[Rfam]
RNA: Small Cajal body specific RNA 8
RNA sequence: CGGGAGAUGGAUACAUGAGAGUCGACAAGACAAGAUUACUCGUCACAUAAUUCUUCCAAAAAAAAAAAGUGCCUUCUGAUGACUGUAACUUGUGAAGUACUAUUUUACAGACAGAUACGGGGCAUACAUUU
Numbered sequence: 001c002g003g004g005a006g007a008u009g010g011a012u013a014c015a016u017g018a019g020a021g022u023c024g025a026c027a028a029g030a031c032a033a034g035a036u037u038a039c040u041c042g043u044c045a046c047a048u049a050a051u052u053c054u055u056c057c058a059a060a061a062a063a064a065a066a067a068a069g070u071g072c073c074u075u076c077u078g079a080u081g082a083c084u085g086u087a088a089c090u091u092g093u094g095a096a097g098u099a100c101u102a103u104u105u106u107a108c109a110g111a112c113a114g115a116u117a118c119g120g121g122g123c124a125u126a127c128a129u130u131u
Base pairs, nucleotide, nucleotide: 002057003056004055005054006053007052015043016042017041018040021036022035023034069125070124071123072122073121074120075119083110084109085108088105091102